[Rfam]
Nucleotides: 139
Stems, first nucleotide, its partner, number of pairs: 004138004089107004
Number, partner (000 for none) and nucleotide at each position: 001000c002000c003000c004138g005137u006136c007135g008000g009000a010000g011000a012000u013000g014000a015000u016000g017000a018000g019000g020000u021000u022000g023000u024000u025000a026000c027000u028000c029000a030000u031000a032000u033000u034000c035000u036000c037000a038000a039000u040000g041000g042000u043000c044000u045000a046000g047000a048000u049000u050000u051000u052000g053000a054000u055000u056000a057000u058000c059000a060000a061000c062000c063000u064000u065000u066000u067000g068000u069000a070000u071000c072000u073000u074000c075000a076000a077000u078000g079000c080000u081000u082000a083000g084000c085000c086000g087000u088000g089107g090106a091105g092104a093000u094000u095000c096000c097000a098000u099000c100000u101000c102000g103000u104092u105091u106090u107089c108000a109000g110000g111000u112000c113000u114000u115000u116000a117000c118000u119000c120000u121000c122000a123000a124000u125000u126000g127000a128000u129000a130000g131000a132000g133000u134000a135007u136006g137005a138004u139000c